[Rfam]
RNA sequence: UACAUUCGAAUAUGCUUACCGUAGACAGUAGGUGCCAUUAGCAGGCUUAAUUUCCUACCGAGGUGUUAUGAUAGAACGUCAGCAGUUUGUCCGGUUUGUCCGGCAUAAUGAUGAUCCAUCAGGCCUUCGUGAUUCUACGGAGGCUUUUUUGAUGCCCGU
Numbered sequence: 001u002a003c004a005u006u007c008g009a010a011u012a013u014g015c016u017u018a019c020c021g022u023a024g025a026c027a028g029u030a031g032g033u034g035c036c037a038u039u040a041g042c043a044g045g046c047u048u049a050a051u052u053u054c055c056u057a058c059c060g061a062g063g064u065g066u067u068a069u070g071a072u073a074g075a076a077c078g079u080c081a082g083c084a085g086u087u088u089g090u091c092c093g094g095u096u097u098g099u100c101c102g103g104c105a106u107a108a109u110g111a112u113g114a115u116c117c118a119u120c121a122g123g124c125c126u127u128c129g130u131g132a133u134u135c136u137a138c139g140g141a142g143g144c145u146u147u148u149u150u151g152a153u154g155c156c157c158g159u
Stems, first nucleotide, its partner, number of pairs: 028058005034046003123144009

This 159-nucleotide RNA sequence from Paenibacillus lemnae belongs to the Rfam family "Ribosomal protein L10 leader". The source organism's lineage runs through Bacteria, Bacillota, Caryophanales, Paenibacillaceae and Paenibacillus. By type it is a cis-regulatory leader.